Mammalian CPEB3 ribozyme: a 75-nucleotide RNA sequence from Alligator mississippiensis. Pairs were carried over by alignment from the consensus structure, which is taken from published work. NCBI's taxonomy places the organism under Eukaryota, Craniata, Teleostomi, Alligatoridae, Alligator.
[Rfam]
RNA sequence: GCAGUAUCACUAAGUCGUAGUAGAUACACUCAUGGCGCGGACCUGUCAGAUUCCAACGAAUCUGCAAAUUCUGCU
Numbered sequence: 001g002c003a004g005u006a007u008c009a010c011u012a013a014g015u016c017g018u019a020g021u022a023g024a025u026a027c028a029c030u031c032a033u034g035g036c037g038c039g040g041a042c043c044u045g046u047c048a049g050a051u052u053c054c055a056a057c058g059a060a061u062c063u064g065c066a067a068a069u070u071c072u073g074c075u
Base pairs, nucleotide, nucleotide: 014042015040016039019075020074021073022072023071024070027037047064048063049062050061051060052059053058